RNA sequence: GGUUUCCAUUGGCGCAAAUCCAAUCUCCUUGAUUUCAAUUGGAGAUAAAAAGCAAUUCUUCAUUGGUAGCAAAAGGUUAUCGAUUAAGCAGGAAAUAUACUAUU
Numbered sequence: 001g002g003u004u005u006c007c008a009u010u011g012g013c014g015c016a017a018a019u020c021c022a023a024u025c026u027c028c029u030u031g032a033u034u035u036c037a038a039u040u041g042g043a044g045a046u047a048a049a050a051a052g053c054a055a056u057u058c059u060u061c062a063u064u065g066g067u068a069g070c071a072a073a074a075g076g077u078u079a080u081c082g083a084u085u086a087a088g089c090a091g092g093a094a095a096u097a098u099a100c101u102a103u104u
Stems, first nucleotide, its partner, number of pairs: 009023004059092002062084002065081006

Shown here is a 104-nucleotide sequence from Trithuria inconspicua, a member of the family "Plastid-rps12 3UTR RNA". For this family Rfam cites "Retrograde signaling in plants: A critical review focusing on the GUN pathway and beyond" (Richter et al., Plant Commun, 2023). Rfam classes the family as a cis-regulatory element. Plastid rpl20 is a non-coding RNA (ncRNA) recognised in plastids. It was found in the three prime untranslated region (3UTR) of rps12 gene, its 3UTR location sugest a role in transcript maduration. The sequence is in the family's curated seed alignment.